Rfam assigns this 116-nucleotide sequence from Fulvivirga sediminis to the family "Group II catalytic intron D1-D4-2". Rfam 15.1 lists 1,231 matches to the family in 625 species.
[Rfam]
RNA sequence: GAGUCAACCCACCGACGUUGUUUUGAAGGAGAUAGCGUCAAACCAUCUAGAGGUGCUGAAGUAAAGAGCUUUGGUGCUGAGCGUAGAGGAAAAGUUAUCCCGUGAGGGUAAUAGGU
Numbered sequence: 001g002a003g004u005c006a007a008c009c010c011a012c013c014g015a016c017g018u019u020g021u022u023u024u025g026a027a028g029g030a031g032a033u034a035g036c037g038u039c040a041a042a043c044c045a046u047c048u049a050g051a052g053g054u055g056c057u058g059a060a061g062u063a064a065a066g067a068g069c070u071u072u073g074g075u076g077c078u079g080a081g082c083g084u085a086g087a088g089g090a091a092a093a094g095u096u097a098u099c100c101c102g103u104g105a106g107g108g109u110a111a112u113a114g115g116u
Stems, first nucleotide, its partner, number of pairs: 001009001014039006021032004044115001046089003051084001052078002055075003059071004094112006
Annotation:
NCBI's taxonomy places the organism under Bacteria, Pseudomonadati, Cytophagia, Cytophagales, Fulvivirga. For this family Rfam cites "The ins and outs of group II introns" (Bonen and Vogel, Trends Genet, 2001). The match comes from Rfam's covariance-model search (77 bits). The pairing is the family consensus, mapped onto this sequence. Gene Ontology term of the family: Group II intron splicing.